[Rfam]
RNA sequence: CAAAGACAGUGCUGACAUCAGCACGUCUUAGAAGGUCAGCAUUCUAAGAUGAUGCUGAUGUAAGCACCGUCUUUGAAUGCUGACCUUCUAAGACGUGCUGAUCUCAGCACCCUCUUA
Numbered sequence: 001c002a003a004a005g006a007c008a009g010u011g012c013u014g015a016c017a018u019c020a021g022c023a024c025g026u027c028u029u030a031g032a033a034g035g036u037c038a039g040c041a042u043u044c045u046a047a048g049a050u051g052a053u054g055c056u057g058a059u060g061u062a063a064g065c066a067c068c069g070u071c072u073u074u075g076a077a078u079g080c081u082g083a084c085c086u087u088c089u090a091a092g093a094c095g096u097g098c099u100g101a102u103c104u105c106a107g108c109a110c111c112c113u114c115u116u117a
Stems, first nucleotide, its partner, number of pairs: 004115003009110007017102022040079005046073006053066004
Shown here is a 117-nucleotide RNA from Glycine max, a member of the family "MIR4374 microRNA precursor family". The family's consensus secondary structure was predicted with RNAalifold.